Small nucleolar RNA SNORD115: an 81-nucleotide sequence from Sus scrofa.
Taxonomically the source falls in Sus (Eukaryota, Gnathostomata, Tetrapoda, Suina).
The family has 32 seed sequences and 3,387 matches in Rfam 15.1.

[Rfam]
RNA sequence: AGGUUGAUGAUAAGAACUCACAUUGAUAUGAAGAAAGAUGAUGACUUAAAAAUCAUGCUCAAUAGGAUUACACUGAGGCCU
Numbered sequence: 001a002g003g004u005u006g007a008u009g010a011u012a013a014g015a016a017c018u019c020a021c022a023u024u025g026a027u028a029u030g031a032a033g034a035a036a037g038a039u040g041a042u043g044a045c046u047u048a049a050a051a052a053u054c055a056u057g058c059u060c061a062a063u064a065g066g067a068u069u070a071c072a073c074u075g076a077g078g079c080c081u
Base pairs, nucleotide, nucleotide: 001081002080003079004078005075006074008072009071